[Rfam]
RNA sequence: UGGCCUGAAAUGAUGAUUAGGAAUUCAUGUCUCUUCUCUGAAAUAAGCCAUGGAGAUGCUUGGAUCCAUUUCUGAUCAGGUCC
Number, nucleotide and partner (000 for none) at each position: 001u000002g082003g081004c080005c079006u000007g000008a000009a000010a000011u000012g000013a000014u000015g000016a000017u000018u000019a000020g000021g000022a000023a000024u000025u000026c000027a000028u000029g000030u000031c000032u000033c000034u000035u000036c000037u000038c000039u000040g000041a000042a000043a000044u000045a000046a000047g000048c000049c000050a000051u000052g000053g000054a000055g000056a000057u000058g000059c000060u000061u000062g000063g000064a000065u000066c000067c000068a000069u000070u000071u000072c000073u000074g000075a000076u000077c000078a000079g005080g004081u003082c002083c000